[Rfam]
RNA sequence: UGUUCCCUGGUGUGCUCGCCAGCAAGGCGAUGUCCCUGAGCCGAUGCUUUAAACCCUGGGGGCGAAUACGGUGGUGCUGUGUGCAUGUCCGUUGCGACGGAAAGCCUGAAGCAUCGCAUGACGCCUCCGCCUUGAACCGCAGGGUUCAAGGGCCAAGCCACAGCAGCGGCACAAUCGGGGAGCAC
Numbered sequence: 001u002g003u004u005c006c007c008u009g010g011u012g013u014g015c016u017c018g019c020c021a022g023c024a025a026g027g028c029g030a031u032g033u034c035c036c037u038g039a040g041c042c043g044a045u046g047c048u049u050u051a052a053a054c055c056c057u058g059g060g061g062g063c064g065a066a067u068a069c070g071g072u073g074g075u076g077c078u079g080u081g082u083g084c085a086u087g088u089c090c091g092u093u094g095c096g097a098c099g100g101a102a103a104g105c106c107u108g109a110a111g112c113a114u115c116g117c118a119u120g121a122c123g124c125c126u127c128c129g130c131c132u133u134g135a136a137c138c139g140c141a142g143g144g145u146u147c148a149a150g151g152g153c154c155a156a157g158c159c160a161c162a163g164c165a166g167c168g169g170c171a172c173a174a175u176c177g178g179g180g181a182g183c184a185c
Stems, first nucleotide, its partner, number of pairs: 002183010012172004017168003032153004037148006058128003062124003071117007083105002088101005
RNA: 6S / SsrS RNA
Organism: Isoalcanivorax pacificus